The record is an 82-nucleotide RNA from Ictidomys tridecemlineatus, which matches "Small nucleolar RNA MBII-202" in Rfam. Taxonomically the source falls in Ictidomys (Eukaryota, Sarcopterygii, Tetrapoda, Eutheria). Pairs were carried over by alignment from the consensus structure, which was predicted with PFOLD. By type it is a C/D-box small nucleolar RNA.
[Rfam]
RNA sequence: UGAUGACAUUCUCCGGAAUCGCUGUACUGCCGUGAUGAAAGUACACUUGAACCCUUUUCCAUCUGACGGCUGAGCGUUUGUU
Dot-bracket structure: .(((((.......................................................................)))))